Shown here is an 89-nucleotide RNA from Devosia sp. A8/3-2, a member of the family "Repression of heat shock gene expression (ROSE) element". This family represents a 5' UTR cis-regulatory element found in heat shock mRNAs and is known as the ROSE (repression of heat shock gene expression) element. The ROSE element is a negative regulator of heat shock gene expression. The secondary structure is thought to be regulated by temperature. This regulation blocks access to the ribosome binding site under normal conditions. During heat shock however, the structure changes freeing the ribosome binding site and allowing expression to occur.
[Rfam]
RNA sequence: GCCGGGGCUUUUGCCCGGCAGGUCUGGGAGGCGUUCCUCUUGGGCGCCUCUCGUAUCCAUGUUGCUCAAGGAGGAUAUGGCUAUGAGGA
Numbered sequence: 001g002c003c004g005g006g007g008c009u010u011u012u013g014c015c016c017g018g019c020a021g022g023u024c025u026g027g028g029a030g031g032c033g034u035u036c037c038u039c040u041u042g043g044g045c046g047c048c049u050c051u052c053g054u055a056u057c058c059a060u061g062u063u064g065c066u067c068a069a070g071g072a073g074g075a076u077a078u079g080g081c082u083a084u085g086a087g088g089a
Base pairs, nucleotide, nucleotide: 001019002018003017004016005015006014008013029049030048031047032046033045034044035043036042050087051086052085053084054083055082057080058079059078060077061076062075063074065073066072067071